This 170-nucleotide RNA sequence from Xanthomonas boreopolis belongs to the Rfam family "Proteobacterial sRNA sX4". The base pairs follow the family's consensus structure, which was predicted with RNAalifold. On this family, see Schmidtke et al., Nucleic Acids Res 2011: "Genome-wide transcriptome analysis of the plant pathogen Xanthomonas identifies sRNAs with putative virulence functions".
[Rfam]
RNA sequence: GCCGGUGCGGGCCCCGGAGAGGUGUCCGAGUGGUUGAAGGAGCACGCCUGGAAAGUGUGUAAGCGUCUAAACCGCGCUUCGGGGGUUCGAAUCCCCCUCUCUCCGCCAGAUUCAAAGUGUUGGGAUGGCCCAGUCGCGUGAGUUUCGCCGGCGCCUGGGAGGGGGUGAGA
Numbered sequence: 001g002c003c004g005g006u007g008c009g010g011g012c013c014c015c016g017g018a019g020a021g022g023u024g025u026c027c028g029a030g031u032g033g034u035u036g037a038a039g040g041a042g043c044a045c046g047c048c049u050g051g052a053a054a055g056u057g058u059g060u061a062a063g064c065g066u067c068u069a070a071a072c073c074g075c076g077c078u079u080c081g082g083g084g085g086u087u088c089g090a091a092u093c094c095c096c097c098u099c100u101c102u103c104c105g106c107c108a109g110a111u112u113c114a115a116a117g118u119g120u121u122g123g124g125a126u127g128g129c130c131c132a133g134u135c136g137c138g139u140g141a142g143u144u145u146c147g148c149c150g151g152c153g154c155c156u157g158g159g160a161g162g163g164g165g166u167g168a169g170a
Base pairs, nucleotide, nucleotide: 002082003081004080005079007077014028016026030075031074035069036068038066040064043059044058045057046056047055094165095164096162097161098160099159104119105118106117133152134151135150136149138148139147140146

A search with the family's covariance model found it, with a score of 76 bits.